[Rfam]
RNA sequence: AAGGAAGAGAACGUUCGCUGUUGAUGUAGUCGACCUUUGUACUCUUUAUAUCACAGUGGCUGUUCUUUUUUGU
Numbered sequence: 001a002a003g004g005a006a007g008a009g010a011a012c013g014u015u016c017g018c019u020g021u022u023g024a025u026g027u028a029g030u031c032g033a034c035c036u037u038u039g040u041a042c043u044c045u046u047u048a049u050a051u052c053a054c055a056g057u058g059g060c061u062g063u064u065c066u067u068u069u070u071u072g073u
Stems, first nucleotide, its partner, number of pairs: 003071002006068007015059006022053002025050004
A member of the RNA family "mir-6 microRNA precursor family" from Drosophila virilis, 73 nucleotides long. The family's consensus secondary structure was predicted with PFOLD. Rfam links the family to the GO terms miRNA-mediated post-transcriptional gene silencing and RISC complex. Lineage of the source: Eukaryota > Ecdysozoa > Pancrustacea > Panorpida > Drosophila. This family consists of the microRNA (miRNA) precursor mir-6 which appears to be Drosophila specific. Animal miRNAs are transcribed as ~70nt precursors and subsequently processed by the Dicer enzyme to give a ~22nt product. In this case the mature sequence comes from the 3' arm of the precursor. The extents of the hairpin precursors are not generally known and are estimated based on hairpin prediction.